[Rfam]
RNA sequence: UAACCAUCCCGAGCGGCUGAGAGACCUGGCUCUAUGACGCCGCAGCAACCCUGGUCACGACGAAUCUCCCUGGAUUCGCGCUGAUAACAAGGAACUUGUCGAGGGCUGCGCCGAACAAGCGCAGUAAGACCUGUUCCGUAGGGUGCUACUGCCAGGACCGAUGGAGU
Numbered sequence: 001u002a003a004c005c006a007u008c009c010c011g012a013g014c015g016g017c018u019g020a021g022a023g024a025c026c027u028g029g030c031u032c033u034a035u036g037a038c039g040c041c042g043c044a045g046c047a048a049c050c051c052u053g054g055u056c057a058c059g060a061c062g063a064a065u066c067u068c069c070c071u072g073g074a075u076u077c078g079c080g081c082u083g084a085u086a087a088c089a090a091g092g093a094a095c096u097u098g099u100c101g102a103g104g105g106c107u108g109c110g111c112c113g114a115a116c117a118a119g120c121g122c123a124g125u126a127a128g129a130c131c132u133g134u135u136c137c138g139u140a141g142g143g144u145g146c147u148a149c150u151g152c153c154a155g156g157a158c159c160g161a162u163g164g165a166g167u
Stems, first nucleotide, its partner, number of pairs: 004164005013043005021032003026155004044147004049143002052138003151159001
A member of the RNA family "SAM riboswitch aptamer (S box leader)" from Crystallibacter crystallopoietes, 167 nucleotides long. It scores 46 bits against the family's covariance model. Rfam describes the family as follows. The SAM riboswitch is found upstream of a number of genes which code for proteins involved in methionine or cysteine biosynthesis in Gram-positive bacteria. Pairs were carried over by alignment from the consensus structure, which is taken from published work.